Rfam assigns this 159-nucleotide RNA sequence from Fontibacillus panacisegetis to the family "FMN riboswitch aptamer (RFN element)". It scores 118 bits against the family's covariance model. On this family, see Gelfand et al., Trends Genet 1999: "A conserved RNA structure element involved in the regulation of bacterial riboflavin synthesis genes". Rfam links the family to the GO term FMN binding.

RNA sequence: AUGGAUCUUCGGGGUAAGGUGAAAUUCCUGACCGGCGGUGAUGGUUCGUAACUAGUAGUGAACGAACGUUAAGCCCGCGACUCGCUAUUAAGAUUUAAUAGCGACUGAUCUGGUGUAAUUCCAGAGCCGACGGUAAAGUCCGGAUGGGAGAAGAUCAAA
Numbered sequence: 001a002u003g004g005a006u007c008u009u010c011g012g013g014g015u016a017a018g019g020u021g022a023a024a025u026u027c028c029u030g031a032c033c034g035g036c037g038g039u040g041a042u043g044g045u046u047c048g049u050a051a052c053u054a055g056u057a058g059u060g061a062a063c064g065a066a067c068g069u070u071a072a073g074c075c076c077g078c079g080a081c082u083c084g085c086u087a088u089u090a091a092g093a094u095u096u097a098a099u100a101g102c103g104a105c106u107g108a109u110c111u112g113g114u115g116u117a118a119u120u121c122c123a124g125a126g127c128c129g130a131c132g133g134u135a136a137a138g139u140c141c142g143g144a145u146g147g148g149a150g151a152a153g154a155u156c157a158a159a
Stems, first nucleotide, its partner, number of pairs: 004156007017029003031139002033129002035078004073127002082104002109125005131142003